[Rfam]
RNA sequence: UUGUGUGUAGGAGGAAUUGAUUUAUUCAGUGGAAACAAGGAAACACUUGAUUUAAAUCAAUUUUUUA
Numbered sequence: 001u002u003g004u005g006u007g008u009a010g011g012a013g014g015a016a017u018u019g020a021u022u023u024a025u026u027c028a029g030u031g032g033a034a035a036c037a038a039g040g041a042a043a044c045a046c047u048u049g050a051u052u053u054a055a056a057u058c059a060a061u062u063u064u065u066u067a
Stems, first nucleotide, its partner, number of pairs: 014063006022055002026050003029046003
The family of this 67-nucleotide sequence is "Cyano-1 RNA". Rfam 15.1 lists 283 matches to the family in 194 species. The family's RNA type in Rfam is small RNA. The sequence is in the family's curated seed alignment.